[Rfam]
RNA: Bacterial large signal recognition particle RNA
Organism: Roseburia sp. CAG:50
RNA sequence: UCGAGCAGCCGGGGUGGUAGCGGUACCUUGUACCAUCAAUCCGCUAGAGUUGGGGUGAUAUCCCGCAGAGGGUUGUUAAUUGUAGAGCUGCCUCUUAUAAGCGGCGUAGAUUUUUGGGUCUCACGCAACAGGAACUUACGAACCGGGUCAGGUCAGGAAUGGAGCAGCCCUAAGUAGGAUCUCUUGUGUGCCGUGAGGGUGCCUGGGAUGAGUUGGCUGUAGGAGUAACGUCUGGGAUUGCAAUUCGAAGCGGGAUGCUCGU
Numbered sequence: 001u002c003g004a005g006c007a008g009c010c011g012g013g014g015u016g017g018u019a020g021c022g023g024u025a026c027c028u029u030g031u032a033c034c035a036u037c038a039a040u041c042c043g044c045u046a047g048a049g050u051u052g053g054g055g056u057g058a059u060a061u062c063c064c065g066c067a068g069a070g071g072g073u074u075g076u077u078a079a080u081u082g083u084a085g086a087g088c089u090g091c092c093u094c095u096u097a098u099a100a101g102c103g104g105c106g107u108a109g110a111u112u113u114u115u116g117g118g119u120c121u122c123a124c125g126c127a128a129c130a131g132g133a134a135c136u137u138a139c140g141a142a143c144c145g146g147g148u149c150a151g152g153u154c155a156g157g158a159a160u161g162g163a164g165c166a167g168c169c170c171u172a173a174g175u176a177g178g179a180u181c182u183c184u185u186g187u188g189u190g191c192c193g194u195g196a197g198g199g200u201g202c203c204u205g206g207g208a209u210g211a212g213u214u215g216g217c218u219g220u221a222g223g224a225g226u227a228a229c230g231u232c233u234g235g236g237a238u239u240g241c242a243a244u245u246c247g248a249a250g251c252g253g254g255a256u257g258c259u260c261g262u
Stems, first nucleotide, its partner, number of pairs: 002261006008056003011029006018022001033053003037049001061255006070246005077240005083234004089227002093224006101217002103214003112208008120197006126188002129186005135178005145170004153162003